[Rfam]
RNA: mir-203 microRNA precursor family
RNA sequence: AUCCAUCUGAUCAAGUGGUCCUAAACAUUUCACAAUUUUGGUAAUGAACUGUUGAACUGUUAAGAACCACUCGACCCGAA
Numbered sequence: 001a002u003c004c005a006u007c008u009g010a011u012c013a014a015g016u017g018g019u020c021c022u023a024a025a026c027a028u029u030u031c032a033c034a035a036u037u038u039u040g041g042u043a044a045u046g047a048a049c050u051g052u053u054g055a056a057c058u059g060u061u062a063a064g065a066a067c068c069a070c071u072c073g074a075c076c077c078g079a080a
Stems, first nucleotide, its partner, number of pairs: 014071006021064002024061004029056004
Dot-bracket structure: .............((((((.((.((((.((((....................)))).)))).)).)))))).........